[Rfam]
RNA sequence: UGGCCUGAAAUGAUGUUACGAAUUCAUGUCUCUUCUCUGAGAUGUGUCAUGGAGACAGCUGAAUGCAUGUCUGAUCAGGCCA
Numbered sequence: 001u002g003g004c005c006u007g008a009a010a011u012g013a014u015g016u017u018a019c020g021a022a023u024u025c026a027u028g029u030c031u032c033u034u035c036u037c038u039g040a041g042a043u044g045u046g047u048c049a050u051g052g053a054g055a056c057a058g059c060u061g062a063a064u065g066c067a068u069g070u071c072u073g074a075u076c077a078g079g080c081c082a
Stems, first nucleotide, its partner, number of pairs: 001082005
Small nucleolar RNA SNORD111: an 82-nucleotide sequence from Crotophaga sulcirostris. The base pairs follow the family's consensus structure, which was predicted with RNAalifold. NCBI's taxonomy places the organism under Eukaryota, Archosauria, Dinosauria, Neognathae, Crotophaga. Rfam links the family to the GO terms RNA processing and nucleolus. Rfam 15.1 lists 894 matches to the family in 541 species.